[Rfam]
Nucleotides: 077
Stems, first nucleotide, its partner, number of pairs: 003075004009069002012066005018060002021057001023055008
Number, partner (000 for none) and nucleotide at each position: 001000g002000g003075u004074u005073c006072u007000c008000u009069g010068g011000c012066a013065g014064u015063g016062u017000c018060u019059u020000a021057g022000c023055u024054g025053g026052u027051u028050g029049u030048u031000g032000u033000g034000u035000g036000g037000a038000g039000u040000g041000a042000g043000a044000a045000c046000g047000a048030a049029g050028c051027a052026a053025u054024c055023a056000g057021c058000a059019a060018g061000u062016a063015u064014a065013c066012u067000g068010c069009c070000g071000c072006a073005g074004a075003a076000a077000c
Overview: The family of this 77-nucleotide RNA sequence from Danio rerio is "mir-34 microRNA precursor family". The literature on the family includes a 2003 paper in Science by Lim et al., "Vertebrate microRNA genes". The sequence is in the family's curated seed alignment. About the family: Human mir-34a was discovered computationally and later experimentally verified. The mature sequence is excised from the 5' arm of the hairpin.